This 112-nucleotide RNA from Rhizobium etli belongs to the Rfam family "rpsB sRNA".
It is annotated as a small RNA.
RNA sequence: CACACGUAAGGCAUGGGAUCGUCCGGGAGAAAUCCGGGCUGUUCCGCCGGUGGCAUUCUCGAAGAGGGUGCUGUUCGUCUUGCGGAGGUUCAACCGGAAAAGGAGUAACAAG
Numbered sequence: 001c002a003c004a005c006g007u008a009a010g011g012c013a014u015g016g017g018a019u020c021g022u023c024c025g026g027g028a029g030a031a032a033u034c035c036g037g038g039c040u041g042u043u044c045c046g047c048c049g050g051u052g053g054c055a056u057u058c059u060c061g062a063a064g065a066g067g068g069u070g071c072u073g074u075u076c077g078u079c080u081u082g083c084g085g086a087g088g089u090u091c092a093a094c095c096g097g098a099a100a101a102g103g104a105g106u107a108a109c110a111a112g
Base pairs, nucleotide, nucleotide: 001087003085005084006083007082008081009080010079011078016045017044024036025035027034052072053071054070055069056068057067058066059065060064

NCBI's taxonomy places the organism under Bacteria, Pseudomonadati, Pseudomonadota, Rhizobiaceae, Rhizobium etli.